[Rfam]
RNA sequence: GGACAGUCAUCGCCGAGUCCCCGCCGGGCGCGAGCCCUGGGGAGCCGGGGACCCAUGUCCCCACCGGGGUGAAUCGGAACCUCCGCAGCCCGCGGAGGAGCCGUAGGAGACCUUCCUCUCUCCGAACCCGUCAGCUAACCCGGUAGGCGAGAAGGAAGGAAAG
Numbered sequence: 001g002g003a004c005a006g007u008c009a010u011c012g013c014c015g016a017g018u019c020c021c022c023g024c025c026g027g028g029c030g031c032g033a034g035c036c037c038u039g040g041g042g043a044g045c046c047g048g049g050g051a052c053c054c055a056u057g058u059c060c061c062c063a064c065c066g067g068g069g070u071g072a073a074u075c076g077g078a079a080c081c082u083c084c085g086c087a088g089c090c091c092g093c094g095g096a097g098g099a100g101c102c103g104u105a106g107g108a109g110a111c112c113u114u115c116c117u118c119u120c121u122c123c124g125a126a127c128c129c130g131u132c133a134g135c136u137a138a139c140c141c142g143g144u145a146g147g148c149g150a151g152a153a154g155g156a157a158g159g160a161a162a163g
Stems, first nucleotide, its partner, number of pairs: 011149004018043006044144006054066001067129003075103003106123004
Annotation:
Shown here is a 163-nucleotide sequence from Streptomyces qinzhouensis, a member of the family "c-di-AMP riboswitch aptamer (ydaO/yuaA leader)". The source organism's lineage runs through Bacteria, Bacillati, Actinomycetes, Kitasatosporales and Streptomyces. About the family: This family represents a conserved RNA structure found upstream of the ydaO and yuaA genes in Bacillus subtilis and related genes in other bacteria. The ydaO/yuaA element is thought to act as a genetic 'off' switch for the ydaO and yuaA genes in its native state.